MIR390 microRNA precursor family: a 140-nucleotide sequence from Acer yangbiense. The source organism's lineage runs through Eukaryota, Euphyllophyta, Sapindales, Sapindaceae and Acer. For this family Rfam cites "Expression of Arabidopsis MIRNA genes" (Xie et al., Plant Physiol, 2005). Rfam 15.1 lists 649 matches to the family in 206 species.
RNA sequence: UGGGAGAAUCCGUUAAGCUCAGGAGGGAUAGCGCCAUGAACAAUCAUACUUAUUAGCUUUAAUUUACAAAGUUAAUGUUGAAUAUGAUCUAUAGUUCCUAGUAGUGGCGCUAUCUAUCCUGAGUUUCAUGGCUUCUUCCU
Numbered sequence: 001u002g003g004g005a006g007a008a009u010c011c012g013u014u015a016a017g018c019u020c021a022g023g024a025g026g027g028a029u030a031g032c033g034c035c036a037u038g039a040a041c042a043a044u045c046a047u048a049c050u051u052a053u054u055a056g057c058u059u060u061a062a063u064u065u066a067c068a069a070a071g072u073u074a075a076u077g078u079u080g081a082a083u084a085u086g087a088u089c090u091a092u093a094g095u096u097c098c099u100a101g102u103a104g105u106g107g108c109g110c111u112a113u114c115u116a117u118c119c120u121g122a123g124u125u126u127c128a129u130g131g132c133u134u135c136u137u138c139c140u
Stems, first nucleotide, its partner, number of pairs: 010131001016125009026115012
Gene Ontology terms of the family: miRNA-mediated post-transcriptional gene silencing and RISC complex.